[Rfam]
RNA sequence: CACGGUUGGUGGCGCACUUCCUGAUAGCGGGCGGUGUAUGAACAGCUGUAAUCAGCCAAACGAUACCCGGCCCGCCUGUUAAGCGGGCUUUUUUUU
Numbered sequence: 001c002a003c004g005g006u007u008g009g010u011g012g013c014g015c016a017c018u019u020c021c022u023g024a025u026a027g028c029g030g031g032c033g034g035u036g037u038a039u040g041a042a043c044a045g046c047u048g049u050a051a052u053c054a055g056c057c058a059a060a061c062g063a064u065a066c067c068c069g070g071c072c073c074g075c076c077u078g079u080u081a082a083g084c085g086g087g088c089u090u091u092u093u094u095u096u
Stems, first nucleotide, its partner, number of pairs: 009043002014037005020031004069089007

Tryptophan operon leader: a 96-nucleotide RNA from Salmonella enterica. By type it is a cis-regulatory leader. On this family, see Kolter and Yanofsky, Annu Rev Genet 1982: "Attenuation in amino acid biosynthetic operons". Taxonomically the source falls in Salmonella enterica subsp. enterica serovar Paratyphi A (Bacteria, Gammaproteobacteria, Salmonella, Salmonella enterica). Gene Ontology terms of the family: transcriptional attenuation by ribosome and tryptophan biosynthetic process.